Record summary
The record is a 73-nucleotide RNA from Hymenochirus boettgeri, which matches "mir-133 microRNA precursor family" in Rfam. NCBI's taxonomy places the organism under Eukaryota, Metazoa, Bilateria, Dipnotetrapodomorpha, Hymenochirus. A reference for the family is Lagos-Quintana et al. (2002), "Identification of tissue-specific microRNAs from mouse", Curr Biol. Rfam describes the family as follows. mir-133 was first experimentally characterised in mouse and homologues have since been discovered in several other species. The mature sequence is excised from the 3' arm of the hairpin. A search with the family's covariance model found it, with a score of 65 bits. The family has 127 seed sequences and 3,763 matches in Rfam 15.1.

RNA sequence: UGGCUGUGGCUGGUGAAAAGGAACCACAUCAACCCAAGCAAAGGAUUUGGUCCCCUUCAACCAGCUGCAACUG
Dot-bracket structure: ..(.((.(((((((..((.(((.(((.(((.............))).))))))..))..))))))).)).)..
Numbered sequence: 001u002g003g004c005u006g007u008g009g010c011u012g013g014u015g016a017a018a019a020g021g022a023a024c025c026a027c028a029u030c031a032a033c034c035c036a037a038g039c040a041a042a043g044g045a046u047u048u049g050g051u052c053c054c055c056u057u058c059a060a061c062c063a064g065c066u067g068c069a070a071c072u073g
Stems, first nucleotide, its partner, number of pairs: 003071001005069002008066007017057002020053003024050003028046003